[Rfam]
RNA sequence: UUUUGAGCAUAAGUAUAUCUCAUGCAAUAUUUGAGAGAUACUCAUACUAAAA
Dot-bracket structure: .....((.((.(.(((.(((((........).)))).))).).)).))....

Rfam assigns this 52-nucleotide RNA from Propithecus coquereli to the family "mir-1302 microRNA precursor family". Pairs were carried over by alignment from the consensus structure, which was predicted with WAR. Gene Ontology terms of the family: miRNA-mediated post-transcriptional gene silencing and RISC complex. The source organism's lineage runs through Eukaryota, Deuterostomia, Chordata, Euteleostomi and Propithecus. The match comes from Rfam's covariance-model search (62 bits). A reference for the family is Morin et al. (2008), "Application of massively parallel sequencing to microRNA profiling and discovery in human embryonic stem cells", Genome Res.